[Rfam]
RNA sequence: UGCCCGCUGAUGACACAUCCUUGCUCCCCGUGCCCUCCUGGGGCUUUGGGCGACACAGUGGCUCCCCUGGGCUGGCCAGUGGGCUGAUGCCUGGGGGCUGAGGGCA
Numbered sequence: 001u002g003c004c005c006g007c008u009g010a011u012g013a014c015a016c017a018u019c020c021u022u023g024c025u026c027c028c029c030g031u032g033c034c035c036u037c038c039u040g041g042g043g044c045u046u047u048g049g050g051c052g053a054c055a056c057a058g059u060g061g062c063u064c065c066c067c068u069g070g071g072c073u074g075g076c077c078a079g080u081g082g083g084c085u086g087a088u089g090c091c092u093g094g095g096g097g098c099u100g101a102g103g104g105c106a
Base pairs, nucleotide, nucleotide: 001106002105003104004103005102
Record summary:
The family of this 106-nucleotide RNA from Chrysochloris asiatica is "Small nucleolar RNA SNORD23". The pairing is the family consensus, mapped onto this sequence. Rfam classes the family as a C/D-box small nucleolar RNA. On this family, see Galardi et al., Mol Cell Biol 2002: "Purified box C/D snoRNPs are able to reproduce site-specific 2'-O-methylation of target RNA in vitro". Taxonomically the source falls in Chrysochloris (Eukaryota, Dipnotetrapodomorpha, Afrotheria, Chrysochlorinae).